[Rfam]
RNA sequence: ACUGCUGAGCCAUCUCUCCAGCCCCAUAAAUAUUUUUUUUAAAACUCCAACGAUACUAGGGGCUGGAGAGAUGGCUCAGUGGG
Numbered sequence: 001a002c003u004g005c006u007g008a009g010c011c012a013u014c015u016c017u018c019c020a021g022c023c024c025c026a027u028a029a030a031u032a033u034u035u036u037u038u039u040u041a042a043a044a045c046u047c048c049a050a051c052g053a054u055a056c057u058a059g060g061g062g063c064u065g066g067a068g069a070g071a072u073g074g075c076u077c078a079g080u081g082g083g
Base pairs, nucleotide, nucleotide: 002082003081004080005079006078007077008076009075010074011073012072013071014070015069016068017067018066019065020064021063022062023061024060

Shown here is an 83-nucleotide RNA from Nannospalax galili, a member of the family "mir-3473 microRNA precursor family". Lineage of the source: Eukaryota > Eumetazoa > Amniota > Boreoeutheria > Nannospalax. The match comes from Rfam's covariance-model search (76 bits).